RNA sequence: ACUUCCUAAGCCGGAACGAAAAGUGUGUUUUUUGAAUGAAGGGCGCAUUUUGGCUUUGUGGUUGUGAUGUUGUGUUUGCUAAUUUUCCUGAUAUUUGUCAGGUACAAUCAUUAAUUCACUGAUUUAUUUGGCUUAAUGAUGAUUUUAUUUUCUGAACAUUUACCCUGUCUGUCCAUAGUGAUUACAGUAGCACCGCCAAGGCGGUGCUUUUUUUA
Numbered sequence: 001a002c003u004u005c006c007u008a009a010g011c012c013g014g015a016a017c018g019a020a021a022a023g024u025g026u027g028u029u030u031u032u033u034g035a036a037u038g039a040a041g042g043g044c045g046c047a048u049u050u051u052g053g054c055u056u057u058g059u060g061g062u063u064g065u066g067a068u069g070u071u072g073u074g075u076u077u078g079c080u081a082a083u084u085u086u087c088c089u090g091a092u093a094u095u096u097g098u099c100a101g102g103u104a105c106a107a108u109c110a111u112u113a114a115u116u117c118a119c120u121g122a123u124u125u126a127u128u129u130g131g132c133u134u135a136a137u138g139a140u141g142a143u144u145u146u147a148u149u150u151u152c153u154g155a156a157c158a159u160u161u162a163c164c165c166u167g168u169c170u171g172u173c174c175a176u177a178g179u180g181a182u183u184a185c186a187g188u189a190g191c192a193c194c195g196c197c198a199a200g201g202c203g204g205u206g207c208u209u210u211u212u213u214u215a
Stems, first nucleotide, its partner, number of pairs: 009055004015051002023049001026045008085104001087102005107140008156188002160184001189208008
The record is a 215-nucleotide sequence from Limnobaculum parvum, which matches "GcvB RNA" in Rfam.
Rfam describes the family as follows. The gcvB gene encodes a small untranslated RNA involved in expression of the dipeptide and oligopeptide transport systems in Escherichia coli. Included several unknown homologues in alignment (Bateman A pers obs). It base-pairs with SorC. This interaction triggers the degradation of GcvB by RNase E, alleviating the GcvB-mediated mRNA repression of other amino acid-related transport and metabolic genes.
Gene Ontology terms of the family: regulation of gene expression and mRNA binding.
NCBI's taxonomy places the organism under Bacteria, Pseudomonadota, Gammaproteobacteria, Budviciaceae, Limnobaculum.
It is annotated as a non-coding RNA gene.
A reference for the family is Sharma et al. (2007), "A small RNA regulates multiple ABC transporter mRNAs by targeting C/A-rich elements inside and upstream of ribosome-binding sites", Genes Dev.